Rfam assigns this 81-nucleotide RNA from Cnephaeus nilssonii to the family "mir-574 microRNA precursor family". Taxonomically the source falls in Cnephaeus (Eukaryota, Opisthokonta, Chordata, Mammalia). Gene Ontology terms of the family: RISC complex and miRNA-mediated post-transcriptional gene silencing. On this family, see Lui et al., Cancer Res 2007: "Patterns of known and novel small RNAs in human cervical cancer". Rfam 15.1 lists 4,084 matches to the family in 7 species. The base pairs follow the family's consensus structure, which was predicted with RNAalifold.
RNA sequence: AAGCCCUAAAAGAGAGGCAGGGUCUGAUCCGAAGCCUCCAUGGCAGCUGUUGAUCAGCUGUUGCCUCUCUCUUUUUCUUCG
Number, nucleotide and partner (000 for none) at each position: 001a000002a000003g000004c000005c000006c000007u000008a073009a072010a000011a070012g069013a068014g067015a066016g065017g064018c063019a062020g061021g000022g059023u000024c057025u056026g055027a054028u053029c052030c000031g000032a000033a048034g047035c046036c000037u000038c000039c000040a000041u000042g000043g000044c000045a000046g035047c034048u033049g000050u000051u000052g029053a028054u027055c026056a025057g024058c000059u022060g000061u020062u019063g018064c017065c016066u015067c014068u013069c012070u011071c000072u009073u008074u000075u000076u000077c000078u000079u000080c000081g000